[Rfam]
Nucleotides: 107
Base pairs, nucleotide, nucleotide: 001078003075004074005073006070007067008066009065012064013063016041020035021034022033023032024031043057044056045055047053084102085101086100087099088097089096090095
Number, partner (000 for none) and nucleotide at each position: 001078c002000g003075g004074c005073u006070c007067u008066u009065c010000c011000c012064c013063u014000g015000u016041c017000a018000u019000u020035g021034u022033g023032a024031a025000g026000c027000a028000g029000a030000a031024u032023u033022c034021a035020c036000c037000a038000a039000g040000c041016g042000u043057u044056g045055g046000a047053u048000u049000g050000u051000u052000c053047a054000c055045c056044c057043a058000c059000u060000a061000a062000u063013a064012g065009g066008g067007a068000a069000u070006g071000u072000g073005a074004g075003c076000a077000g078001g079000g080000u081000u082000u083000a084102g085101a086100c087099c088097g089096u090095c091000g092000u093000a094000a095090g096089a097088c098000a099087g100086g101085u102084u103000a104000g105000u106000u107000u

This 107-nucleotide part of an RNA from Carlito syrichta belongs to the Rfam family "Eukaryotic large subunit ribosomal RNA".
The organism belongs to Carlito, within Eukaryota.